The record is a 127-nucleotide RNA from Chara braunii, which matches "U11 spliceosomal RNA" in Rfam. A search with the family's covariance model found it, with a score of 56 bits. Pairs were carried over by alignment from the consensus structure, which is taken from published work. Taxonomically the source falls in Chara (Eukaryota, Viridiplantae, Streptophytina, Charophyceae).
RNA sequence: AAAAAGGGCCAGCUGGCUAUAUAUGGCAUGCAUGGUUUAGGCCGUGCACAGUAUGGACAUCAAACCAUAUGGCUGGCAGAAUUUCUGAACCCUCCAAUAGGGUUGGCACGCUUUGCCGACCCUUAAA
Numbered sequence: 001a002a003a004a005a006g007g008g009c010c011a012g013c014u015g016g017c018u019a020u021a022u023a024u025g026g027c028a029u030g031c032a033u034g035g036u037u038u039a040g041g042c043c044g045u046g047c048a049c050a051g052u053a054u055g056g057a058c059a060u061c062a063a064a065c066c067a068u069a070u071g072g073c074u075g076g077c078a079g080a081a082u083u084u085c086u087g088a089a090c091c092c093u094c095c096a097a098u099a100g101g102g103u104u105g106g107c108a109c110g111c112u113u114u115g116c117c118g119a120c121c122c123u124u125a126a127a
Base pairs, nucleotide, nucleotide: 008077009076010075011074012073016027017026018025019024029048030047031046032045033044034043035042036041049072051070052069053068054067055066096124097123101121102120103119104118105117106116107115108114